Shown here is a 102-nucleotide RNA from Aquisalibacillus elongatus, a member of the family "SAM riboswitch aptamer (S box leader)". The match comes from Rfam's covariance-model search (91 bits). NCBI's taxonomy places the organism under Bacteria, Bacillati, Caryophanales, Bacillaceae, Aquisalibacillus.
[Rfam]
RNA sequence: UUCUUAUCCAGAGAGGUGGAGGGACUGGCCCUACGAAACCUCAGCAACAGGUUCUUGUAACACUGUGCUAAUUCCAGAAGCCUAUAGGCUGAAAGAUAAGAA
Dot-bracket structure: ((((((((....(((((...(((.[[[[)))......)))))((((.(((.(......).)..))))))...(]]]].((((....))))...)))))))))